[Rfam]
The record is a 72-nucleotide RNA from Kocuria palustris, which matches "tRNA" in Rfam. Its family is annotated with triplet codon-amino acid adaptor activity in the Gene Ontology. The organism belongs to Kocuria palustris, within Bacteria. The family's consensus secondary structure is taken from published work. By type it is a transfer RNA.
RNA sequence: GCCCCGAUAGCUCAGUGGUAGAGCGCCAUCUUGGUAAGAUGGAGGUCCCGGGAUCGAUUCCCGGUCGGGGCU
Dot-bracket structure: (((((((..((((.......)))).(((((.......))))).....(((((.......)))))))))))).
Numbered sequence: 001g002c003c004c005c006g007a008u009a010g011c012u013c014a015g016u017g018g019u020a021g022a023g024c025g026c027c028a029u030c031u032u033g034g035u036a037a038g039a040u041g042g043a044g045g046u047c048c049c050g051g052g053a054u055c056g057a058u059u060c061c062c063g064g065u066c067g068g069g070g071c072u
Stems, first nucleotide, its partner, number of pairs: 001071007010024004026042005048064005